[Rfam]
Rfam assigns this 254-nucleotide RNA sequence to the family "Clostridiales-3 RNA". The sequence is in the family's curated seed alignment. The family's RNA type in Rfam is small RNA. The family's consensus secondary structure is taken from published work.
RNA sequence: UAGUAGUUUGAGGGAUCGAAAGAUGAAGAACGAGAUGCAGGGAACAAAUCUGGUAAAGGGAUUAGUCAGGUAUUGCGGAAGGAUAAUAAUCCAUGAAGGUCGAGAGGCUCGACCUUAUCCUCGAAACGGCAAUAGAGGAGAUAGUGUUAUCGAAAGGUAAGGCGUCAUGAAUGCGAAAGCAGCUCUUUUGUAACUCCUAGGAAGAAUCCAAGUGUACGGGGGAGGGACUUGAAACAGUCAACGUACAUCUUACA
Dot-bracket structure: .....((((.....(((....)))...))))............................................................(((.((((((((.....)))))))).(((((............)))))(((.((.(((((....))))).))))))))..(((....)))..............................(((((((.......((((......))))..)))))))......
Numbered sequence: 001u002a003g004u005a006g007u008u009u010g011a012g013g014g015a016u017c018g019a020a021a022g023a024u025g026a027a028g029a030a031c032g033a034g035a036u037g038c039a040g041g042g043a044a045c046a047a048a049u050c051u052g053g054u055a056a057a058g059g060g061a062u063u064a065g066u067c068a069g070g071u072a073u074u075g076c077g078g079a080a081g082g083a084u085a086a087u088a089a090u091c092c093a094u095g096a097a098g099g100u101c102g103a104g105a106g107g108c109u110c111g112a113c114c115u116u117a118u119c120c121u122c123g124a125a126a127c128g129g130c131a132a133u134a135g136a137g138g139a140g141a142u143a144g145u146g147u148u149a150u151c152g153a154a155a156g157g158u159a160a161g162g163c164g165u166c167a168u169g170a171a172u173g174c175g176a177a178a179g180c181a182g183c184u185c186u187u188u189u190g191u192a193a194c195u196c197c198u199a200g201g202a203a204g205a206a207u208c209c210a211a212g213u214g215u216a217c218g219g220g221g222g223a224g225g226g227a228c229u230u231g232a233a234a235c236a237g238u239c240a241a242c243g244u245a246c247a248u249c250u251u252a253c254a
Stems, first nucleotide, its partner, number of pairs: 006031004015024003092169003096116008118139005140166003144163002147160005172181003212248007226239004